mir-130 microRNA precursor family: a 101-nucleotide RNA sequence from Sphenodon punctatus. The source organism's lineage runs through Eukaryota, Craniata, Vertebrata, Sarcopterygii and Sphenodon. The match comes from Rfam's covariance-model search (41 bits). A reference for the family is Lagos-Quintana et al. (2002), "Identification of tissue-specific microRNAs from mouse", Curr Biol.
[Rfam]
RNA sequence: CCCCAGCCAAACCUCUUUGCACGCUGCUGCUGCCAGAAUGGAUCUUCCUCCUUUCUCUCUGUGCCCAGCAGCAGUGGGGUGCAAAGGGGUUUGGCUGGGGG
Dot-bracket structure: (((.((((((.(((((((((((.((((((((((..................................)))))))))).))))))))))).))))))..)))